[Rfam]
RNA: Small nucleolar RNA SNORA25
Organism: Propithecus coquereli
RNA sequence: UGGUCAUUUCAAAGCGGGCUUGUGGGGCUGUGAAACCAGGAUCUCUUAACAUUAUGAUCAAAGACCGACAUUCUCCAUAGGACACCAGAGUCACUCAACAGUCUUAUGAUUUCCUAAGGAACUGUAAAG
Numbered sequence: 001u002g003g004u005c006a007u008u009u010c011a012a013a014g015c016g017g018g019c020u021u022g023u024g025g026g027g028c029u030g031u032g033a034a035a036c037c038a039g040g041a042u043c044u045c046u047u048a049a050c051a052u053u054a055u056g057a058u059c060a061a062a063g064a065c066c067g068a069c070a071u072u073c074u075c076c077a078u079a080g081g082a083c084a085c086c087a088g089a090g091u092c093a094c095u096c097a098a099c100a101g102u103c104u105u106a107u108g109a110u111u112u113c114c115u116a117a118g119g120a121a122c123u124g125u126a127a128a129g
Stems, first nucleotide, its partner, number of pairs: 002059006014047001016045003020041002023039001026037002074120003079115004087107001089105002093102003